[Rfam]
RNA sequence: GGAGAGAUGUCCGAGAGGCCGAAGGAGCACGCUUGGAAAGCGUGUGUAUCGCAAGGUACCGGGGGUUCGAAUCCCCCUCUCUCCG
Numbered sequence: 001g002g003a004g005a006g007a008u009g010u011c012c013g014a015g016a017g018g019c020c021g022a023a024g025g026a027g028c029a030c031g032c033u034u035g036g037a038a039a040g041c042g043u044g045u046g047u048a049u050c051g052c053a054a055g056g057u058a059c060c061g062g063g064g065g066u067u068c069g070a071a072u073c074c075c076c077c078u079c080u081c082u083c084c085g
Stems, first nucleotide, its partner, number of pairs: 001084007010026003028044005061077005
Shown here is an 85-nucleotide RNA from Spirochaeta isovalerica, a member of the family "tRNA". It scores 53 bits against the family's covariance model. Rfam classes the family as a transfer RNA. Gene Ontology term of the family: triplet codon-amino acid adaptor activity. The base pairs follow the family's consensus structure, which is taken from published work. Taxonomically the source falls in Spirochaeta (Bacteria, Pseudomonadati, Spirochaetia, Spirochaetales).